[Rfam]
RNA sequence: GGGCUGGCUUUAGCCCAGCGGUUCCUUCGAGUCUGGCUUCCUAACCGCCCGGGGCCACUGGCUUCCAUGGUCUAGUGGUUUGAGAACCCUGGGCGCUCUCCAAUCCUUUU
Numbered sequence: 001g002g003g004c005u006g007g008c009u010u011u012a013g014c015c016c017a018g019c020g021g022u023u024c025c026u027u028c029g030a031g032u033c034u035g036g037c038u039u040c041c042u043a044a045c046c047g048c049c050c051g052g053g054g055c056c057a058c059u060g061g062c063u064u065c066c067a068u069g070g071u072c073u074a075g076u077g078g079u080u081u082g083a084g085a086a087c088c089c090u091g092g093g094c095g096c097u098c099u100c101c102a103a104u105c106c107u108u109u110u
Stems, first nucleotide, its partner, number of pairs: 002105002005102003013094004018090001020088002026084008
The family of this 110-nucleotide sequence from Cavia porcellus is "Vault RNA". The organism belongs to Cavia, within Eukaryota. The family's RNA type in Rfam is non-coding RNA gene. It scores 55 bits against the family's covariance model.